[Rfam]
RNA sequence: UGUAUAGGAGACGAAGUGUAUUGGCAUCGAACCCACCUAUUAUGGGCUCUAGCUAAGGAAAGUCCCCGGGCCACAUACCGCAGAGAUGCGGGCUUGGAAACAAGCCACUCCGGAUUGCCUGUCGUACAUGGGACAUGUGUGGAGCCCAUUGAUGGGUAAAUUAGGAGUCCAUUUGGCCGAUUCUCACAGUUAUACACUUGAGGUAUAUAUAACCUUAACCAAACGGGGCUUACGAUCUCCUACGC
Numbered sequence: 001u002g003u004a005u006a007g008g009a010g011a012c013g014a015a016g017u018g019u020a021u022u023g024g025c026a027u028c029g030a031a032c033c034c035a036c037c038u039a040u041u042a043u044g045g046g047c048u049c050u051a052g053c054u055a056a057g058g059a060a061a062g063u064c065c066c067c068g069g070g071c072c073a074c075a076u077a078c079c080g081c082a083g084a085g086a087u088g089c090g091g092g093c094u095u096g097g098a099a100a101c102a103a104g105c106c107a108c109u110c111c112g113g114a115u116u117g118c119c120u121g122u123c124g125u126a127c128a129u130g131g132g133a134c135a136u137g138u139g140u141g142g143a144g145c146c147c148a149u150u151g152a153u154g155g156g157u158a159a160a161u162u163a164g165g166a167g168u169c170c171a172u173u174u175g176g177c178c179g180a181u182u183c184u185c186a187c188a189g190u191u192a193u194a195c196a197c198u199u200g201a202g203g204u205a206u207a208u209a210u211a212a213c214c215u216u217a218a219c220c221a222a223a224c225g226g227g228g229c230u231u232a233c234g235a236u237c238u239c240c241u242a243c244g245c
Stems, first nucleotide, its partner, number of pairs: 002245002005242007014199006022055001024053002060231003064228004079090004091106006108167004113162004117157004139149004201215004
RNase MRP: a 245-nucleotide sequence from Dorcoceras hygrometricum. Rfam's curators write: RNase MRP is an enzymatically active ribonucleoprotein with two distinct roles in eukaryotes. The source organism's lineage runs through Eukaryota, Streptophytina, Tracheophyta, Mesangiospermae and Dorcoceras. Rfam 15.1 lists 3,510 matches to the family in 2,315 species. Rfam classes the family as a ribozyme.